The family of this 134-nucleotide RNA from Mesorhizobium australicum is "Alphaproteobacterial sRNA ar35". By type it is a small RNA. For this family Rfam cites "A survey of sRNA families in alpha-proteobacteria" (del Val et al., RNA Biol, 2012). It scores 52 bits against the family's covariance model.
Nucleotides: 134
Base pairs, nucleotide, nucleotide: 002035004033005032006031049098050097051096052095053094054093057088058087059086060085063082064081066080067079068078100131101130102129103128104127105126106125107124108123109122110121111120113118
Number, partner (000 for none) and nucleotide at each position: 001000g002035c003000c004033g005032c006031a007000g008000c009000g010000g011000c012000a013000a014000g015000a016000g017000c018000g019000c020000u021000g022000c023000c024000g025000a026000g027000a028000a029000c030000c031006u032005g033004c034000a035002g036000g037000c038000c039000g040000c041000g042000u043000a044000a045000g046000g047000a048000a049098u050097c051096g052095u053094c054093u055000u056000c057088g058087a059086u060085c061000c062000g063082c064081g065000a066080c067079c068078g069000c070000g071000g072000a073000u074000g075000u076000a077000c078068c079067g080066g081064c082063g083000c084000g085060g086059a087058u088057c089000g090000u091000c092000g093054a094053g095052a096051c097050g098049a099000c100131u101130g102129g103128a104127g105126a106125g107124g108123u109122c110121g111120g112000g113118c114000c115000a116000a117000c118113g119000c120111c121110c122109g123108g124107c125106c126105u127104u128103u129102u130101u131100g132000c133000u134000u
The base pairs follow the family's consensus structure.